[Rfam]
RNA sequence: UCGUAACACUAUUGUAAGUCGCUUUGGAUUAAAGCAUCUGCUAAAUGACUGUAA
Numbered sequence: 001u002c003g004u005a006a007c008a009c010u011a012u013u014g015u016a017a018g019u020c021g022c023u024u025u026g027g028a029u030u031a032a033a034g035c036a037u038c039u040g041c042u043a044a045a046u047g048a049c050u051g052u053a054a
Base pairs, nucleotide, nucleotide: 013043014041015040016039021035022034023033024032025031